[Rfam]
RNA sequence: GCCAGGAUGAACCCAGGUGGUCCUGGGCGCGGACUUCAAAUCCGUGGCGGCCGAGAGGCCGAGUGGUUCAAUUCCACCUUCCCGGC
Numbered sequence: 001g002c003c004a005g006g007a008u009g010a011a012c013c014c015a016g017g018u019g020g021u022c023c024u025g026g027g028c029g030c031g032g033a034c035u036u037c038a039a040a041u042c043c044g045u046g047g048c049g050g051c052c053g054a055g056a057g058g059c060c061g062a063g064u065g066g067u068u069c070a071a072u073u074c075c076a077c078c079u080u081c082c083c084g085g086c
Stems, first nucleotide, its partner, number of pairs: 001086003005082003009078001012027006028046006048061005063077004